Shown here is a 109-nucleotide RNA from Blastococcus sp. CCUG 61487, a member of the family "TPP riboswitch aptamer (THI element)". It scores 60 bits against the family's covariance model.
RNA sequence: GCGCCGUACCGCGGGAGCCCAUCGCAAUGGGCUGAGAGGACGGCUGCGGCCGCCGACCGUUCGAACCUGUCCGGGUCAUGCCGGCGUAGGGAGGCAGUAGAAGAUGCGU
Numbered sequence: 001g002c003g004c005c006g007u008a009c010c011g012c013g014g015g016a017g018c019c020c021a022u023c024g025c026a027a028u029g030g031g032c033u034g035a036g037a038g039g040a041c042g043g044c045u046g047c048g049g050c051c052g053c054c055g056a057c058c059g060u061u062c063g064a065a066c067c068u069g070u071c072c073g074g075g076u077c078a079u080g081c082c083g084g085c086g087u088a089g090g091g092a093g094g095c096a097g098u099a100g101a102a103g104a105u106g107c108g109u
Stems, first nucleotide, its partner, number of pairs: 007096001009094002011060004017032005039054001041052003066090004071084004